[Rfam]
RNA sequence: AUGAGUAUAAGGGGAGAGACUACCUAUGGUAGCGCCGAAGGAGCAAGCAUGACAGUUGCGAAUCUCUCAGGCAAAAAGACCCUUGUAGGACG
Numbered sequence: 001a002u003g004a005g006u007a008u009a010a011g012g013g014g015a016g017a018g019a020c021u022a023c024c025u026a027u028g029g030u031a032g033c034g035c036c037g038a039a040g041g042a043g044c045a046a047g048c049a050u051g052a053c054a055g056u057u058g059c060g061a062a063u064c065u066c067u068c069a070g071g072c073a074a075a076a077a078g079a080c081c082c083u084u085g086u087a088g089g090a091c092g
Stems, first nucleotide, its partner, number of pairs: 006087008020032004034072003037068002041066003047059002
RNA: Glycine riboswitch aptamer
Organism: Terrihalobacillus insolitus